[Rfam]
RNA sequence: UUUUAAGCCUUCCAGCAUGCUUGGGUCCAGGAUGACUCAAUGCAUUCCUGCAGUGCUUGCUAGAAUCUUCUGAAAUGGUUUGAGACCUUGACCUGUCCCUUCCUGGGAACAUGGUCACAGACAUUUCAGACAGUU
Numbered sequence: 001u002u003u004u005a006a007g008c009c010u011u012c013c014a015g016c017a018u019g020c021u022u023g024g025g026u027c028c029a030g031g032a033u034g035a036c037u038c039a040a041u042g043c044a045u046u047c048c049u050g051c052a053g054u055g056c057u058u059g060c061u062a063g064a065a066u067c068u069u070c071u072g073a074a075a076u077g078g079u080u081u082g083a084g085a086c087c088u089u090g091a092c093c094u095g096u097c098c099c100u101u102c103c104u105g106g107g108a109a110c111a112u113g114g115u116c117a118c119a120g121a122c123a124u125u126u127c128a129g130a131c132a133g134u135u
Base pairs, nucleotide, nucleotide: 004059005058006057007056008055018044019043020042023038024037025036026035027034071128072127073126074125075124086114087113089111090110093107094106095103
Rfam assigns this 135-nucleotide RNA from Camelus ferus to the family "Small nucleolar RNA SNORA9". Lineage of the source: Eukaryota > Vertebrata > Theria > Tylopoda > Camelus. Its Rfam clan is "SNORA9 clan". It is annotated as an H/ACA-box small nucleolar RNA. Its family is annotated with RNA processing and nucleolus in the Gene Ontology. From the family's description: ACA9 is a member of the H/ACA class of snoRNA that guide the sites of modification of uridines to pseudouridines.